A member of the RNA family "epsC RNA" from Bacillus gobiensis, 116 nucleotides long. It scores 105 bits against the family's covariance model. The source organism's lineage runs through Bacteria, Bacillota, Bacilli, Caryophanales and Bacillus. Rfam classes the family as a cis-regulatory element.
RNA sequence: GGGUGAUAUCUCAUAACCCUUAUCAAGUGAGGUACUCGGUUGUGCUGUGGGUGUGAAGCCUUGCACCUUAGACGCUGGUCGUCAGAGGCAGAAUGUGAGGGCGGGUUCGAUGCCCG
Numbered sequence: 001g002g003g004u005g006a007u008a009u010c011u012c013a014u015a016a017c018c019c020u021u022a023u024c025a026a027g028u029g030a031g032g033u034a035c036u037c038g039g040u041u042g043u044g045c046u047g048u049g050g051g052u053g054u055g056a057a058g059c060c061u062u063g064c065a066c067c068u069u070a071g072a073c074g075c076u077g078g079u080c081g082u083c084a085g086a087g088g089c090a091g092a093a094u095g096u097g098a099g100g101g102c103g104g105g106u107u108c109g110a111u112g113c114c115c116g
Base pairs, nucleotide, nucleotide: 001019002018003017004016007034008033009032010031011030012029013028035099036098037097038096039094040093041092043090044089045088046087049068050067051066052065053064054063055062056061071083072082073081074080102116103115104114105113106112